[Rfam]
RNA: Lysine riboswitch aptamer
RNA sequence: GAUGUAGAUAGAGGUUGCAUUUUUCAUGAGUAGAUGGUUGGAUGUUCAGGAGCAGAUGAAGGCUUUUGAAAGGGAAAGAUGCCGAAAAAAUACAAGACCUGAGCUUGUGUUUUUGGGCAUGUCAUUAAGAGUGGCAUGACUGUCAUCGCAGGAUGGAGUGCUAUCUGAUAG
Dot-bracket structure: .....((((((.....(((((((((.......((.((((.....................)))).))......)))))))))...(((((((((((.......)))))))))))((.((((((((.....)))))))).)).(((((....)))))....)))))).....
Numbered sequence: 001g002a003u004g005u006a007g008a009u010a011g012a013g014g015u016u017g018c019a020u021u022u023u024u025c026a027u028g029a030g031u032a033g034a035u036g037g038u039u040g041g042a043u044g045u046u047c048a049g050g051a052g053c054a055g056a057u058g059a060a061g062g063c064u065u066u067u068g069a070a071a072g073g074g075a076a077a078g079a080u081g082c083c084g085a086a087a088a089a090a091u092a093c094a095a096g097a098c099c100u101g102a103g104c105u106u107g108u109g110u111u112u113u114u115g116g117g118c119a120u121g122u123c124a125u126u127a128a129g130a131g132u133g134g135c136a137u138g139a140c141u142g143u144c145a146u147c148g149c150a151g152g153a154u155g156g157a158g159u160g161c162u163a164u165c166u167g168a169u170a171g
Stems, first nucleotide, its partner, number of pairs: 006166006017082009033067002036064004086114011115141002118138008143156005